Rfam assigns this 88-nucleotide sequence from Streptomyces sp. F-1 to the family "Streptomyces RNA 6106". The pairing is the family consensus, mapped onto this sequence. It is annotated as a small RNA.
RNA sequence: ACGACGCCCUCCGUGGCGUCCACGGGCUUCUGCAACGGGCCCAUGUGGCGGGGGUGGUGCCGUGUCGGCGCAGCACCACCCCCGGCCG
Number, nucleotide and partner (000 for none) at each position: 001a019002c018003g017004a000005c015006g014007c013008c000009c000010u000011c000012c000013g007014u006015g005016g000017c003018g002019u001020c000021c045022a044023c000024g042025g041026g000027c038028u037029u000030c000031u000032g000033c000034a000035a000036c000037g028038g027039g000040c000041c025042c024043a000044u022045g021046u000047g000048g000049c084050g083051g082052g081053g080054g079055u078056g077057g076058u075059g074060c073061c000062g071063u070064g069065u000066c000067g000068g000069c064070g063071c062072a000073g060074c059075a058076c057077c056078a055079c054080c053081c052082c051083c050084g049085g000086c000087c000088g000
The source organism's lineage runs through Bacteria, Bacillati, Actinomycetes, Streptomycetaceae and Streptomyces.
A search with the family's covariance model found it, with a score of 56 bits.
About the family: Identified by deep sequencing of transcriptome at the end of exponential growth phase. Appears smaller on northern blot than sequencing transcript. This indicates processing step. Streptomyces specific.